[Rfam]
RNA sequence: GGCGGAGGGAAGCUCAUCAGUGGGGCCACGCGCGGAGUGCGUCUCGUCACUCUAUCCAAUGUCCCUUGGGAAGGUCUGAGACUAGGGCCAUUAGCGGCCCUAACAGGGCCCUCCCCGACCUCGGGGAGGUGAGUUCCCAGAGAAUGGGUCUCCGGCGAGGGCAGACUGGGCAGGAGAUGCUACGGGUCCCCUCUCCCUCGCGGAAGGGGUCCUAGCGGAUGCCUCCUUAGCCGGAGCUUGGAACAGACUCACGGCCAGCGAAGUGAGUUCAAUGGCUGAGGUGAGGCACCCCGGAGGGGGCCUCAUAACCCAAUUCAGACUACUCUCCCGCCGUC
Numbered sequence: 001g002g003c004g005g006a007g008g009g010a011a012g013c014u015c016a017u018c019a020g021u022g023g024g025g026c027c028a029c030g031c032g033c034g035g036a037g038u039g040c041g042u043c044u045c046g047u048c049a050c051u052c053u054a055u056c057c058a059a060u061g062u063c064c065c066u067u068g069g070g071a072a073g074g075u076c077u078g079a080g081a082c083u084a085g086g087g088c089c090a091u092u093a094g095c096g097g098c099c100c101u102a103a104c105a106g107g108g109c110c111c112u113c114c115c116c117g118a119c120c121u122c123g124g125g126g127a128g129g130u131g132a133g134u135u136c137c138c139a140g141a142g143a144a145u146g147g148g149u150c151u152c153c154g155g156c157g158a159g160g161g162c163a164g165a166c167u168g169g170g171c172a173g174g175a176g177a178u179g180c181u182a183c184g185g186g187u188c189c190c191c192u193c194u195c196c197c198u199c200g201c202g203g204a205a206g207g208g209g210u211c212c213u214a215g216c217g218g219a220u221g222c223c224u225c226c227u228u229a230g231c232c233g234g235a236g237c238u239u240g241g242a243a244c245a246g247a248c249u250c251a252c253g254g255c256c257a258g259c260g261a262a263g264u265g266a267g268u269u270c271a272a273u274g275g276c277u278g279a280g281g282u283g284a285g286g287c288a289c290c291c292c293g294g295a296g297g298g299g300g301c302c303u304c305a306u307a308a309c310c311c312a313a314u315u316c317a318g319a320c321u322a323c324u325c326u327c328c329c330g331c332c333g334u335c
Stems, first nucleotide, its partner, number of pairs: 001335004008328003013280004018275001022066004035052005040046001076318005086256004096110005111128006129252007150236007281306007